[Rfam]
This 130-nucleotide sequence from Odocoileus virginianus belongs to the Rfam family "Small nucleolar RNA SNORA3/SNORA45 family". It is annotated as an H/ACA-box small nucleolar RNA. Pairs were carried over by alignment from the consensus structure, which was predicted with RNAalifold. The source organism's lineage runs through Eukaryota, Chordata, Mammalia, Cervidae and Odocoileus virginianus. Gene Ontology terms of the family: nucleolus and RNA processing. The literature on the family includes a 2005 paper in Nucleic Acids Res by Gu et al., "A novel experimental approach for systematic identification of box H/ACA snoRNAs from eukaryotes". Rfam describes the family as follows. The members of this family belong to the H/ACA class of snoRNAs which are thought to guide the sites of modification of uridines to pseudouridines. This family includes mouse snoMBI-28 and human homologues ACA3 (SNORA3) and ACA3-2 (SNORA45). Both ACA3 and ACA3-2 share the same host gene. MBI-28, ACA3 and ACA3-2 are all predicted to guide the pseudouridylation of residues in 28S rRNA.
RNA sequence: UUCAGGGCGAGAGUCACGUUUGGGUAUCAGCUACUGCCUGAGUGCGGUGGAGUCCUCCAAAAGUAACUGCUGACCUUAGUCACUGGCUGUGGCCCUCAUGACACAGACAGUCAGCAGGUUAGUGACAGGC
Numbered sequence: 001u002u003c004a005g006g007g008c009g010a011g012a013g014u015c016a017c018g019u020u021u022g023g024g025u026a027u028c029a030g031c032u033a034c035u036g037c038c039u040g041a042g043u044g045c046g047g048u049g050g051a052g053u054c055c056u057c058c059a060a061a062a063g064u065a066a067c068u069g070c071u072g073a074c075c076u077u078a079g080u081c082a083c084u085g086g087c088u089g090u091g092g093c094c095c096u097c098a099u100g101a102c103a104c105a106g107a108c109a110g111u112c113a114g115c116a117g118g119u120u121a122g123u124g125a126c127a128g129g130c
Stems, first nucleotide, its partner, number of pairs: 002059001005056002007053002012048001015046001017044004023038004070122007082111004088105004093100001